This 82-nucleotide sequence from Clostridium intestinale belongs to the Rfam family "Clostridiales-2 RNA". Pairs were carried over by alignment from the consensus structure, which is taken from published work. It is annotated as a small RNA. NCBI's taxonomy places the organism under Bacteria, Bacillati, Clostridia, Eubacteriales, Clostridium intestinale.
[Rfam]
RNA sequence: AAAAUGCAAGGGGUGCAGGGGAAGUUGUGUUCCACUGCCUGUCAAGGAGGGUGCUCAGACACGCAGUGUCGUCGAAGGGAAC
Numbered sequence: 001a002a003a004a005u006g007c008a009a010g011g012g013g014u015g016c017a018g019g020g021g022a023a024g025u026u027g028u029g030u031u032c033c034a035c036u037g038c039c040u041g042u043c044a045a046g047g048a049g050g051g052u053g054c055u056c057a058g059a060c061a062c063g064c065a066g067u068g069u070c071g072u073c074g075a076a077g078g079g080a081a082c
Stems, first nucleotide, its partner, number of pairs: 015038004020033003058070004